[Rfam]
RNA sequence: AAUUAUAUAGGUGAUGGAGCUCACCAUUAACCGCUAAGGUCUUUUAGCUGAUGGCUCCUGGCAGGAU
Numbered sequence: 001a002a003u004u005a006u007a008u009a010g011g012u013g014a015u016g017g018a019g020c021u022c023a024c025c026a027u028u029a030a031c032c033g034c035u036a037a038g039g040u041c042u043u044u045u046a047g048c049u050g051a052u053g054g055c056u057c058c059u060g061g062c063a064g065g066a067u
Stems, first nucleotide, its partner, number of pairs: 010025004016058006033048006
A member of the RNA family "Fluoride riboswitch aptamer (crcB RNA motif)" from Halonatronomonas betaini, 67 nucleotides long. Its family is annotated with positive regulation of gene expression and response to fluoride in the Gene Ontology.